[Rfam]
RNA sequence: AAAUUUUUUAUUCGCCCUUGCGUGUCCAUUGUUGCAAGGAGCGAUUUGGAGAAAAUAAA
Number, nucleotide and partner (000 for none) at each position: 001a000002a056003a000004u054005u053006u052007u051008u050009u048010a047011u000012u044013c043014g042015c041016c039017c038018u037019u036020g035021c034022g033023u000024g000025u000026c000027c000028a000029u000030u000031g000032u000033u022034g021035c020036a019037a018038g017039g016040a000041g015042c014043g013044a012045u000046u000047u010048g009049g000050a008051g007052a006053a005054a004055a000056u002057a000058a000059a000
Shown here is a 59-nucleotide RNA, a member of the family "mir-BART2 microRNA precursor family".
Rfam links the family to the GO terms RISC complex and miRNA-mediated post-transcriptional gene silencing.
A reference for the family is Pfeffer et al. (2004), "Identification of Virus-Encoded MicroRNAs", Science.
This family represents the mir-BART2 microRNA precursor found in Human herpesvirus 4 (Epstein-Barr virus) and Cercopithicine herpesvirus 15. mir-BART2 is expressed in all stages of infection but expression is significantly elevated in the lytic stage. In Epstein-Barr virus mir-BART2 is found in the intronic regions of the BART (Bam HI-A region rightward transcript) gene whose function is unknown. mir-BART2 is thought to target the virally encoded polymerase BALF5 for degradation.